[Rfam]
RNA sequence: UAUUAAAUUUUUUUUAUUUCUACAAUUAAAAAUGGGUAUGACUGAUCAAAUAACUAAACAACUACACGUGGCACGCCAUGUAUACCUCAUGCUAGUGUAAAGGAACCAACUUUUAAUAGUAAAAAUGAAAUAAAUUUUUAACA
Numbered sequence: 001u002a003u004u005a006a007a008u009u010u011u012u013u014u015u016a017u018u019u020c021u022a023c024a025a026u027u028a029a030a031a032a033u034g035g036g037u038a039u040g041a042c043u044g045a046u047c048a049a050a051u052a053a054c055u056a057a058a059c060a061a062c063u064a065c066a067c068g069u070g071g072c073a074c075g076c077c078a079u080g081u082a083u084a085c086c087u088c089a090u091g092c093u094a095g096u097g098u099a100a101a102g103g104a105a106c107c108a109a110c111u112u113u114u115a116a117u118a119g120u121a122a123a124a125a126u127g128a129a130a131u132a133a134a135u136u137u138u139u140a141a142c143a
Stems, first nucleotide, its partner, number of pairs: 003141005008134003012130003016126004021121003026116006
MIR7502 microRNA precursor family: a 143-nucleotide RNA sequence from Gossypium harknessii. The family's consensus secondary structure was predicted with RNAalifold. Taxonomically the source falls in Gossypium (Eukaryota, eudicotyledons, Gunneridae, malvids).